This 72-nucleotide RNA sequence from Flavobacterium psychrophilum belongs to the Rfam family "Flavo-1 RNA".
It is annotated as a small RNA.
Rfam's curators put it in the seed alignment.
RNA sequence: UGAUAGCCACGAUUGAAGUGAAAAUCCUCGCCAUUUUUCUUGGCGAGAUUGAAACGGAAAGCGGGAAAAUGG
Numbered sequence: 001u002g003a004u005a006g007c008c009a010c011g012a013u014u015g016a017a018g019u020g021a022a023a024a025u026c027c028u029c030g031c032c033a034u035u036u037u038u039c040u041u042g043g044c045g046a047g048a049u050u051g052a053a054a055c056g057g058a059a060a061g062c063g064g065g066a067a068a069a070u071g072g
Base pairs, nucleotide, nucleotide: 010063011062013060014059018055019054023050024049025048026047029045030044031043032042033041